[Rfam]
Small nucleolar RNA SNORD63: a 79-nucleotide RNA from Molossus molossus. The base pairs follow the family's consensus structure, which was predicted with PFOLD.
RNA sequence: GUGCAGUGGUGCAUUUAUUCUAUUCAUCAACACAUCAUUCUGAAAAGACAGGUGUGCGGAAAGGUAAUGACUGAGUACA
Numbered sequence: 001g002u003g004c005a006g007u008g009g010u011g012c013a014u015u016u017a018u019u020c021u022a023u024u025c026a027u028c029a030a031c032a033c034a035u036c037a038u039u040c041u042g043a044a045a046a047g048a049c050a051g052g053u054g055u056g057c058g059g060a061a062a063g064g065u066a067a068u069g070a071c072u073g074a075g076u077a078c079a
Base pairs, nucleotide, nucleotide: 001078002077003076004075

Overview
Gene Ontology terms of the family: nucleolus and RNA processing. A search with the family's covariance model found it, with a score of 67 bits. NCBI's taxonomy places the organism under Eukaryota, Sarcopterygii, Dipnotetrapodomorpha, Molossidae, Molossus.